[Rfam]
Shown here is a 102-nucleotide sequence from Clostridium chauvoei, a member of the family "Purine riboswitch aptamer". The organism belongs to Clostridium chauvoei, within Bacteria. It scores 81 bits against the family's covariance model.
RNA sequence: UAAAAAAAGAAUAAUAUGAUUCGUAUAUGCUUGAAAAUAAGGUUCAAGUGUCUCUACUGGGAAACCGUAAAAAUCCUAACUACGAAUAUAUGAGUGAUGAGU
Numbered sequence: 001u002a003a004a005a006a007a008a009g010a011a012u013a014a015u016a017u018g019a020u021u022c023g024u025a026u027a028u029g030c031u032u033g034a035a036a037a038u039a040a041g042g043u044u045c046a047a048g049u050g051u052c053u054c055u056a057c058u059g060g061g062a063a064a065c066c067g068u069a070a071a072a073a074u075c076c077u078a079a080c081u082a083c084g085a086a087u088a089u090a091u092g093a094g095u096g097a098u099g100a101g102u
Stems, first nucleotide, its partner, number of pairs: 019087007029049007058078005